The family of this 156-nucleotide RNA from Beta vulgaris is "Small nucleolar RNA snoR2/U65". The match comes from Rfam's covariance-model search (114 bits). Rfam links the family to the GO terms RNA processing and nucleolus. By type it is an H/ACA-box small nucleolar RNA. Lineage of the source: Eukaryota > Streptophytina > Gunneridae > Beta > Beta vulgaris. The family has 11 seed sequences and 908 matches in Rfam 15.1.
[Rfam]
RNA sequence: GGUCCGAUGCCACGUCGUUUAUAGCACAAUAGCCAUGAUUUGCGAUGCUAUGAUUGGUACCAACAUCAAAUUUUUAUUAAUAUUUCGCAUUUUGAUAGGAACCCGUUAAUCUUAUUUUCCGAUGAUUAAACGGAGCCGUUUCUUGCGAUUACAGUU
Numbered sequence: 001g002g003u004c005c006g007a008u009g010c011c012a013c014g015u016c017g018u019u020u021a022u023a024g025c026a027c028a029a030u031a032g033c034c035a036u037g038a039u040u041u042g043c044g045a046u047g048c049u050a051u052g053a054u055u056g057g058u059a060c061c062a063a064c065a066u067c068a069a070a071u072u073u074u075u076a077u078u079a080a081u082a083u084u085u086c087g088c089a090u091u092u093u094g095a096u097a098g099g100a101a102c103c104c105g106u107u108a109a110u111c112u113u114a115u116u117u118u119c120c121g122a123u124g125a126u127u128a129a130a131c132g133g134a135g136c137c138g139u140u141u142c143u144u145g146c147g148a149u150u151a152c153a154g155u156u
Base pairs, nucleotide, nucleotide: 002060003059004057005056006055007054008053009051013047014046015045016044017043018042021039022038024033025032085148086147087146088145089144098137099136103133104132105131107128108127109126110125111124